[Rfam]
Record summary:
The record is a 244-nucleotide RNA sequence from Alloactinosynnema sp. L-07, which matches "Actinobacteria sRNA Ms_IGR-5" in Rfam.
RNA sequence: ACACGAGAGAGGAGGUGGUCCAACGGUGAUUUCGCUCAGGACACGUGAGGUGGCUGUCCGCUAGGACCACCCAUCGAAGAUGGUUGCCGGCUCCGCACACGGCUGACACCGCUAACCCGGUGCCGUAGGCGCGGGCGUGUGGUCGGCGAAUACCAGACAGUCACCCAGCCCUCGGGUCCCCGGGACACAAGUCCGCCCCGGGCCCGGCCGUUUCGGUCGGGAGCCGACCCGAGGGCUGCACCUU
Numbered sequence: 001a002c003a004c005g006a007g008a009g010a011g012g013a014g015g016u017g018g019u020c021c022a023a024c025g026g027u028g029a030u031u032u033c034g035c036u037c038a039g040g041a042c043a044c045g046u047g048a049g050g051u052g053g054c055u056g057u058c059c060g061c062u063a064g065g066a067c068c069a070c071c072c073a074u075c076g077a078a079g080a081u082g083g084u085u086g087c088c089g090g091c092u093c094c095g096c097a098c099a100c101g102g103c104u105g106a107c108a109c110c111g112c113u114a115a116c117c118c119g120g121u122g123c124c125g126u127a128g129g130c131g132c133g134g135g136c137g138u139g140u141g142g143u144c145g146g147c148g149a150a151u152a153c154c155a156g157a158c159a160g161u162c163a164c165c166c167a168g169c170c171c172u173c174g175g176g177u178c179c180c181c182g183g184g185a186c187a188c189a190a191g192u193c194c195g196c197c198c199c200g201g202g203c204c205c206g207g208c209c210g211u212u213u214c215g216g217u218c219g220g221g222a223g224c225c226g227a228c229c230c231g232a233g234g235g236c237u238g239c240a241c242c243u244u
Stems, first nucleotide, its partner, number of pairs: 014058006059148004064144002067142004072137001074135001166238013180201005